[Rfam]
This 85-nucleotide RNA sequence from Merluccius polli belongs to the Rfam family "mir-135 microRNA precursor family". It scores 65 bits against the family's covariance model. The family's consensus secondary structure was predicted with PFOLD. Lineage of the source: Eukaryota > Chordata > Gnathostomata > Teleostei > Merluccius. Rfam links the family to the GO terms gene silencing by miRNA and RISC complex.
RNA sequence: CCACAUGGGCAUCUUAUGGCUUUCUAUUCCUAUGUGAGUUGUGCUGAGGAUCACGUAGGGUUCAAAGCCAUUGGAUGCUAUGGGG
Numbered sequence: 001c002c003a004c005a006u007g008g009g010c011a012u013c014u015u016a017u018g019g020c021u022u023u024c025u026a027u028u029c030c031u032a033u034g035u036g037a038g039u040u041g042u043g044c045u046g047a048g049g050a051u052c053a054c055g056u057a058g059g060g061u062u063c064a065a066a067g068c069c070a071u072u073g074g075a076u077g078c079u080a081u082g083g084g085g
Stems, first nucleotide, its partner, number of pairs: 002084001004082004009078006016071008026062001028060010